[Rfam]
RNA sequence: UCAUGACGAAGUUUUGUUUUCAAUAUAUGUUUUUUCUGGCAUCUCUAAUGUUAGAGCUUUUCAGCUCAAUGAAUACAACCCUUGACACCUAUCUGAUG
Numbered sequence: 001u002c003a004u005g006a007c008g009a010a011g012u013u014u015u016g017u018u019u020u021c022a023a024u025a026u027a028u029g030u031u032u033u034u035u036c037u038g039g040c041a042u043c044u045c046u047a048a049u050g051u052u053a054g055a056g057c058u059u060u061u062c063a064g065c066u067c068a069a070u071g072a073a074u075a076c077a078a079c080c081c082u083u084g085a086c087a088c089c090u091a092u093c094u095g096a097u098g
Base pairs, nucleotide, nucleotide: 055066056065057064058063
Dot-bracket structure: ......................................................((((....))))................................
Shown here is a 98-nucleotide RNA sequence from Hyphopichia burtonii, a member of the family "Small nucleolar RNA snR48". The family's RNA type in Rfam is C/D-box small nucleolar RNA. Pairs were carried over by alignment from the consensus structure, which was predicted with ILM. Taxonomically the source falls in Hyphopichia burtonii (Eukaryota, Opisthokonta, Saccharomycotina, Pichiomycetes). It scores 64 bits against the family's covariance model.